[Rfam]
This 149-nucleotide sequence from Virgibacillus pantothenticus belongs to the Rfam family "FMN riboswitch aptamer (RFN element)". The source organism's lineage runs through Bacteria, Bacillota, Bacilli, Caryophanales and Virgibacillus. The match comes from Rfam's covariance-model search (119 bits).
RNA sequence: UGAUUCCUUCGGGGCAGGGUGAAAUUCCCGACCGACGGUAAAAAGUGGUACAACACUUUAAGUCCGUGACCCGUUUGAUAUUUAUGCAAACGGUGGAUCUGGUGCGAAUCCAGAACCGACAGUUAAAGUCUGGAUGGGAGAAGGAAAAC
Numbered sequence: 001u002g003a004u005u006c007c008u009u010c011g012g013g014g015c016a017g018g019g020u021g022a023a024a025u026u027c028c029c030g031a032c033c034g035a036c037g038g039u040a041a042a043a044a045g046u047g048g049u050a051c052a053a054c055a056c057u058u059u060a061a062g063u064c065c066g067u068g069a070c071c072c073g074u075u076u077g078a079u080a081u082u083u084a085u086g087c088a089a090a091c092g093g094u095g096g097a098u099c100u101g102g103u104g105c106g107a108a109u110c111c112a113g114a115a116c117c118g119a120c121a122g123u124u125a126a127a128g129u130c131u132g133g134a135u136g137g138g139a140g141a142a143g144g145a146a147a148a149c
Stems, first nucleotide, its partner, number of pairs: 004146007017029003031129002033118002035067004062116002071093002098114005120132003